[Rfam]
About this RNA:
The record is a 75-nucleotide RNA from Canis lupus, which matches "mir-8799 microRNA precursor family" in Rfam. Its Rfam clan is "mir-8791 microRNA precursor clan". Pairs were carried over by alignment from the consensus structure, which was predicted with RNAalifold. Its family is annotated with miRNA-mediated post-transcriptional gene silencing and RISC complex in the Gene Ontology.
RNA sequence: GCCGGAUCCUGGGCUGUGUCCCGGCGCCCAGAGCUCCGGGGCCUGCGCUGUUGGAUUCGCGCUCUGGCCGCGCAG
Numbered sequence: 001g002c003c004g005g006a007u008c009c010u011g012g013g014c015u016g017u018g019u020c021c022c023g024g025c026g027c028c029c030a031g032a033g034c035u036c037c038g039g040g041g042c043c044u045g046c047g048c049u050g051u052u053g054g055a056u057u058c059g060c061g062c063u064c065u066g067g068c069c070g071c072g073c074a075g
Stems, first nucleotide, its partner, number of pairs: 001073002003070003008067002012064002015061004019055003022050006031043001033042003